[Rfam]
RNA: ZMP/ZTP riboswitch aptamer (pfl RNA motif)
Organism: Ruminiclostridium cellobioparum
RNA sequence: AAACUGUCAUGCAACUGGCGGAAGUGGAGAUUACCACACGGGAGUAUGACUUUUAAAAGCCGGCCGCCUGGGCGCUUAAA
Numbered sequence: 001a002a003a004c005u006g007u008c009a010u011g012c013a014a015c016u017g018g019c020g021g022a023a024g025u026g027g028a029g030a031u032u033a034c035c036a037c038a039c040g041g042g043a044g045u046a047u048g049a050c051u052u053u054u055a056a057a058a059g060c061c062g063g064c065c066g067c068c069u070g071g072g073c074g075c076u077u078a079a080a
Stems, first nucleotide, its partner, number of pairs: 003053001006050007015041002017068005024037004059073003